The family of this 84-nucleotide RNA sequence from Bombyx mori is "mir-2807 microRNA precursor family".
RNA sequence: UUAACUCAAUUUUGUAUGCAAUUGGAUCGUCUGCCUACGUUUGCCGCUAGGGGCGCUGUUCAAACUGCAUACAAAAUUGUGUUA
Number, nucleotide and partner (000 for none) at each position: 001u000002u000003a000004a000005c000006u000007c000008a078009a077010u076011u075012u074013u073014g072015u071016a070017u000018g068019c000020a066021a000022u064023u063024g000025g061026a060027u000028c058029g057030u000031c000032u000033g000034c052035c051036u050037a000038c000039g047040u046041u000042u000043g000044c000045c000046g040047c039048u000049a000050g036051g035052g034053g000054c000055g000056c000057u029058g028059u000060u026061c025062a000063a023064a022065c000066u020067g000068c018069a000070u016071a015072c014073a013074a012075a011076a010077u009078u008079g000080u000081g000082u000083u000084a000
Gene Ontology terms of the family: RISC complex and miRNA-mediated post-transcriptional gene silencing. NCBI's taxonomy places the organism under Eukaryota, Endopterygota, Amphiesmenoptera, Bombycoidea, Bombyx. A search with the family's covariance model found it, with a score of 75 bits.